The record is a 77-nucleotide RNA sequence from Eptatretus burgeri, which matches "mir-1 microRNA precursor family" in Rfam.
RNA sequence: CGUACACGGACAUGCUUCUUUACCUGGCCAUACGGAUACCUUCGGCUAUGGAAUGUAAAGAAGUAUGUUCGUUUGCA
Numbered sequence: 001c002g003u004a005c006a007c008g009g010a011c012a013u014g015c016u017u018c019u020u021u022a023c024c025u026g027g028c029c030a031u032a033c034g035g036a037u038a039c040c041u042u043c044g045g046c047u048a049u050g051g052a053a054u055g056u057a058a059a060g061a062a063g064u065a066u067g068u069u070c071g072u073u074u075g076c077a
Base pairs, nucleotide, nucleotide: 007071008070009069010068011067012066013065014064015063016062017061018060019059020058021057022056023055025053028051029050030049031048032047
Dot-bracket structure: ......(((((((((((((((((.(..(((((..............))))).).)))))))))))))))))......
A reference for the family is Lee and Ambros (2001), "An extensive class of small RNAs in Caenorhabditis elegans", Science. The match comes from Rfam's covariance-model search (63 bits). The family has 137 seed sequences and 4,474 matches in Rfam 15.1. Rfam's curators write: This family represents the microRNA (miRNA) mir-1 family. miRNAs are transcribed as ~70nt precursors (modelled here) and subsequently processed by the Dicer enzyme to give a ~22nt product. In this case the mature sequence comes from the 3' arm of the precursor. The extents of the hairpin precursors are not generally known and are estimated based on hairpin prediction.